[Rfam]
RNA sequence: UUAGGUUUUCCUAAGUCAACUUAUCAUACUUUGACUAUGUUUAUAGAGAAAUACAACAUCUACACUACCAAAUAUAUACACGAUCAAAAUAUAUUCCAUGAUGAGUUCAACAAAACAAAUUUGGUAUUGUACAUGUUUUAAUUUUUUUUUUCUACAAACCUGAUCAAAGUUAGAUAAGUUUGACUUAGAAACAAAUUUA
Numbered sequence: 001u002u003a004g005g006u007u008u009u010c011c012u013a014a015g016u017c018a019a020c021u022u023a024u025c026a027u028a029c030u031u032u033g034a035c036u037a038u039g040u041u042u043a044u045a046g047a048g049a050a051a052u053a054c055a056a057c058a059u060c061u062a063c064a065c066u067a068c069c070a071a072a073u074a075u076a077u078a079c080a081c082g083a084u085c086a087a088a089a090u091a092u093a094u095u096c097c098a099u100g101a102u103g104a105g106u107u108c109a110a111c112a113a114a115a116c117a118a119a120u121u122u123g124g125u126a127u128u129g130u131a132c133a134u135g136u137u138u139u140a141a142u143u144u145u146u147u148u149u150u151u152c153u154a155c156a157a158a159c160c161u162g163a164u165c166a167a168a169g170u171u172a173g174a175u176a177a178g179u180u181u182g183a184c185u186u187a188g189a190a191a192c193a194a195a196u197u198u199a
Stems, first nucleotide, its partner, number of pairs: 006193001008191002011188008019179007030168005042154002045151005052140002055137005061131004068124006

Shown here is a 199-nucleotide RNA sequence from Digitaria exilis, a member of the family "MIR1435 microRNA precursor family". A search with the family's covariance model found it, with a score of 94 bits. The family has 3 seed sequences and 1,765 matches in Rfam 15.1. Rfam links the family to the GO terms RISC complex and miRNA-mediated post-transcriptional gene silencing. Pairs were carried over by alignment from the consensus structure, which was predicted with RNAalifold. The organism belongs to Digitaria, within Eukaryota.